[Rfam]
RNA sequence: GCCGAGUUGUGUAACACCAGCUUGUGACCCAAGUGGGGGCAAUCAAGGUGAUGGGACAAGUGCUCUGGCCUGCUAGGUUGGGCUUGCAAGGGCUAAUUGUUGGCCUGCCCACUCCAAGUUGAGAGUUGGGCCCGGUAGUCUGGGCGAAGGCCCAAGGCCCCUCGGCCCCUAGAAUGGAAGGUAACGCGCGAGGCUGGCUUAACAGAGCAGCGAUCACUUCCUGCUCCCAACAGUGAAGGGAUAACGGGUCACUAUUCUUCUGGCCCGAUAUAACUUGGUAGGCCUAGCAUCUUGGACCAUCAUUUUU
Dot-bracket structure: (((((((((........))))))....(((....))))))....((((((((((..((.(..((..(..(((((((((((((((.(.(.(((.((.....(((((((.((.((.((.((((.((((.(((((.((..((((((((....)))).))))..)).))))).......(((((......(((....(((......)))....)))....))))).)))).))))..)).))))....))))))).)))))).).))))).....)))))))))).)..))...).))..)))))))))).
Numbered sequence: 001g002c003c004g005a006g007u008u009g010u011g012u013a014a015c016a017c018c019a020g021c022u023u024g025u026g027a028c029c030c031a032a033g034u035g036g037g038g039g040c041a042a043u044c045a046a047g048g049u050g051a052u053g054g055g056a057c058a059a060g061u062g063c064u065c066u067g068g069c070c071u072g073c074u075a076g077g078u079u080g081g082g083c084u085u086g087c088a089a090g091g092g093c094u095a096a097u098u099g100u101u102g103g104c105c106u107g108c109c110c111a112c113u114c115c116a117a118g119u120u121g122a123g124a125g126u127u128g129g130g131c132c133c134g135g136u137a138g139u140c141u142g143g144g145c146g147a148a149g150g151c152c153c154a155a156g157g158c159c160c161c162u163c164g165g166c167c168c169c170u171a172g173a174a175u176g177g178a179a180g181g182u183a184a185c186g187c188g189c190g191a192g193g194c195u196g197g198c199u200u201a202a203c204a205g206a207g208c209a210g211c212g213a214u215c216a217c218u219u220c221c222u223g224c225u226c227c228c229a230a231c232a233g234u235g236a237a238g239g240g241a242u243a244a245c246g247g248g249u250c251a252c253u254a255u256u257c258u259u260c261u262g263g264c265c266c267g268a269u270a271u272a273a274c275u276u277g278g279u280a281g282g283c284c285u286a287g288c289a290u291c292u293u294g295g296a297c298c299a300u301c302a303u304u305u306u307u
Stems, first nucleotide, its partner, number of pairs: 001040003004023006028037003045306010057294002060291001063287002067283001070281010080266005086260001088258001090257003094254002101251007109240002112238002115235002118231004123226004128168005134162002138158004142153004176221005187212003194205003